This 213-nucleotide part of an RNA from Emericellopsis cladophorae belongs to the Rfam family "Ascomycota telomerase RNA". The literature on the family includes a 2013 paper in Nucleic Acids Res by Qi et al., "The common ancestral core of vertebrate and fungal telomerase RNAs". Rfam 15.1 lists 475 matches to the family in 456 species.
RNA sequence: UUCCCCACAGUUCUCCGACUCUCGUUUUCCGUCAGGAACGUCUAACGCAGACCUCUCCUCAUGGCCGGAUGACCCGAUGUGCCGCUCUCGAGCCUGUAACAGGACCUCGCUGCCAGCCGCAAUUGGAUUUUUCGUCGUCAUUUGCUGUCGGUCACCAGACAGCCCGGCCGGAUAGGAGAGAACGAGCUUCGGAACUUAACCCUAGCUAUACGU
Numbered sequence: 001u002u003c004c005c006c007a008c009a010g011u012u013c014u015c016c017g018a019c020u021c022u023c024g025u026u027u028u029c030c031g032u033c034a035g036g037a038a039c040g041u042c043u044a045a046c047g048c049a050g051a052c053c054u055c056u057c058c059u060c061a062u063g064g065c066c067g068g069a070u071g072a073c074c075c076g077a078u079g080u081g082c083c084g085c086u087c088u089c090g091a092g093c094c095u096g097u098a099a100c101a102g103g104a105c106c107u108c109g110c111u112g113c114c115a116g117c118c119g120c121a122a123u124u125g126g127a128u129u130u131u132u133c134g135u136c137g138u139c140a141u142u143u144g145c146u147g148u149c150g151g152u153c154a155c156c157a158g159a160c161a162g163c164c165c166g167g168c169c170g171g172a173u174a175g176g177a178g179a180g181a182a183c184g185a186g187c188u189u190c191g192g193a194a195c196u197u198a199a200c201c202c203u204a205g206c207u208a209u210a211c212g213u
Stems, first nucleotide, its partner, number of pairs: 009196003015192004